Small nucleolar RNA SNORA65: a 130-nucleotide RNA sequence from Pipistrellus kuhlii. The family is grouped with related families in Rfam's "SNORA65 clan". Rfam's curators write: U65 belongs to the H/ACA class of snoRNAs which are thought to guide the sites of modification of uridines to pseudouridines. Its family is annotated with RNA processing and nucleolus in the Gene Ontology. A search with the family's covariance model found it, with a score of 91 bits.
RNA sequence: CUUCCCUGUGCAUCUGACCACUUCCCUGUUGGCUGGUGCAAUCCAGUGGUGAGCUGAAACUAAGCCCCAGCUUAGGAAACAGGAUUAUUCUUCAUGUGGGUGACUCUGUGCUGAUAGCAUGGGAACAACA
Numbered sequence: 001c002u003u004c005c006c007u008g009u010g011c012a013u014c015u016g017a018c019c020a021c022u023u024c025c026c027u028g029u030u031g032g033c034u035g036g037u038g039c040a041a042u043c044c045a046g047u048g049g050u051g052a053g054c055u056g057a058a059a060c061u062a063a064g065c066c067c068c069a070g071c072u073u074a075g076g077a078a079a080c081a082g083g084a085u086u087a088u089u090c091u092u093c094a095u096g097u098g099g100g101u102g103a104c105u106c107u108g109u110g111c112u113g114a115u116a117g118c119a120u121g122g123g124a125a126c127a128a129c130a
Base pairs, nucleotide, nucleotide: 005049006048009045010044017037018036019035020034022031065123066122067121069120070118071117072116075112076111080108081107082106083105085103088100089099090098